[Rfam]
RNA sequence: UGAAGUUAGAUAGAGUUGUAUGGAAUGAAAGAUGUGAAUUCCUGUUUGGAUUCUAUUCACUCUAUUUUCACUCCCUCAUUCCAUACAUCAUCUAACCAACUUAGU
Numbered sequence: 001u002g003a004a005g006u007u008a009g010a011u012a013g014a015g016u017u018g019u020a021u022g023g024a025a026u027g028a029a030a031g032a033u034g035u036g037a038a039u040u041c042c043u044g045u046u047u048g049g050a051u052u053c054u055a056u057u058c059a060c061u062c063u064a065u066u067u068u069c070a071c072u073c074c075c076u077c078a079u080u081c082c083a084u085a086c087a088u089c090a091u092c093u094a095a096c097c098a099a100c101u102u103a104g105u
Stems, first nucleotide, its partner, number of pairs: 005100003009096001011094004015089001017087012031073002034071005048058004
Dot-bracket structure: ....(((.(.(((((.((((((((((((..((.(((((.........((((...))))........)))))))..)))))))))))).).)))).).))).....